Source information:
This 76-nucleotide sequence from Ameiurus melas belongs to the Rfam family "mir-7563 microRNA precursor family".
RNA sequence: ACCGCGUACGUACCUACUACAUAGUAGCUAAGAUACAUAUAUCUCACCUACUAUAUAGCAGGUAAGUACGCGGUUU
Dot-bracket structure: (((((((((.(((((.(((.(((((((.(.(.(((....))).).).))))))).))).))))).)))))))))..